[Rfam]
RNA sequence: CUUCACCGCGCCCAGCCACAGCGGUUCCGUCCGGCCCCGUCCGUAGGUGGCCAGCAGCGCCGCCGCCUC
Numbered sequence: 001c002u003u004c005a006c007c008g009c010g011c012c013c014a015g016c017c018a019c020a021g022c023g024g025u026u027c028c029g030u031c032c033g034g035c036c037c038c039g040u041c042c043g044u045a046g047g048u049g050g051c052c053a054g055c056a057g058c059g060c061c062g063c064c065g066c067c068u069c
Stems, first nucleotide, its partner, number of pairs: 014026004028065002032059002037054001039052001041050003
The family of this 69-nucleotide RNA from Streptomyces boncukensis is "ASpks TB sRNA". The organism belongs to Streptomyces, within Bacteria. Rfam classes the family as an antisense RNA.